[Rfam]
RNA sequence: UGUUACGUAUACUGAAGGUAUACCGGACAGAAAUACACUCAGGAUACAUUCAGUAUACGU
Numbered sequence: 001u002g003u004u005a006c007g008u009a010u011a012c013u014g015a016a017g018g019u020a021u022a023c024c025g026g027a028c029a030g031a032a033a034u035a036c037a038c039u040c041a042g043g044a045u046a047c048a049u050u051c052a053g054u055a056u057a058c059g060u
Base pairs, nucleotide, nucleotide: 005060006059007058008057009056010055011054012053013052014051015050016049018047019046020045021044023043024042026040027039030036